[Rfam]
RNA sequence: GGGACAUGAUGAGUGGUCAGUACUCGCAAUCUAUGUGUGAUGAGUGUACACCCAAUCGCCUGGUUACGACACUCGGGCACUCCCUUUGUUACCUCUUGAUUCC
Numbered sequence: 001g002g003g004a005c006a007u008g009a010u011g012a013g014u015g016g017u018c019a020g021u022a023c024u025c026g027c028a029a030u031c032u033a034u035g036u037g038u039g040a041u042g043a044g045u046g047u048a049c050a051c052c053c054a055a056u057c058g059c060c061u062g063g064u065u066a067c068g069a070c071a072c073u074c075g076g077g078c079a080c081u082c083c084c085u086u087u088g089u090u091a092c093c094u095c096u097u098g099a100u101u102c103c
Stems, first nucleotide, its partner, number of pairs: 001103004015093003023039001025037003042082006061075003
Small nucleolar RNA Z279/snoR105/snoR108: a 103-nucleotide sequence from Hibiscus syriacus.
Rfam describes the family as follows. This family includes the plant snoRNAs known as Z279, snoR105 and snoR108.
For this family Rfam cites "Experimental RNomics: identification of 140 candidates for small non-messenger RNAs in the plant Arabidopsis thaliana" (Marker et al., Curr Biol, 2002).
The family is grouped with related families in Rfam's "snoU13 clan".
Gene Ontology terms of the family: RNA processing and nucleolus.
Lineage of the source: Eukaryota > Tracheophyta > Gunneridae > malvids > Hibiscus.